Description: Shown here is a 124-nucleotide sequence, a member of the family "SAH (S-adenosyl-L-homocysteine) riboswitch aptamer". The family's consensus secondary structure is taken from published work. The match comes from Rfam's covariance-model search (46 bits).
RNA sequence: CGUCUUGAGGAGCGUUGCGAGGCCCAUCCGGCACUGCCGGCCCCGGCCCCAGGCUCAAGACCUUGACCCGUGCAGCCCGCCUGUUAGGCCGCGGCCGUGCUUGUUGCAACGGCGCUCACCCCUG
Numbered sequence: 001c002g003u004c005u006u007g008a009g010g011a012g013c014g015u016u017g018c019g020a021g022g023c024c025c026a027u028c029c030g031g032c033a034c035u036g037c038c039g040g041c042c043c044c045g046g047c048c049c050c051a052g053g054c055u056c057a058a059g060a061c062c063u064u065g066a067c068c069c070g071u072g073c074a075g076c077c078c079g080c081c082u083g084u085u086a087g088g089c090c091g092c093g094g095c096c097g098u099g100c101u102u103g104u105u106g107c108a109a110c111g112g113c114g115c116u117c118a119c120c121c122c123u124g
Stems, first nucleotide, its partner, number of pairs: 002061007021048004